[Rfam]
The family of this 61-nucleotide sequence from Methylocystis parvus is "Fluoride riboswitch aptamer (crcB RNA motif)".
Nucleotides: 061
Stems, first nucleotide, its partner, number of pairs: 010025004016052006032042003
Number, partner (000 for none) and nucleotide at each position: 001000a002000g003000a004000a005000a006000a007000a008000a009000g010025g011024g012023g013022g014000a015000u016052g017051g018050a019049g020048u021047u022013c023012c024011c025010c026000g027000a028000a029000a030000c031000c032042g033041c034040c035000g036000a037000a038000g039000a040034g041033g042032c043000u044000g045000a046000u047021g048020a049019c050018u051017c052016c053000u054000g055000c056000c057000c058000g059000c060000g061000a
Annotation:
Taxonomically the source falls in Methylocystis (Bacteria, Pseudomonadota, Alphaproteobacteria, Methylocystaceae).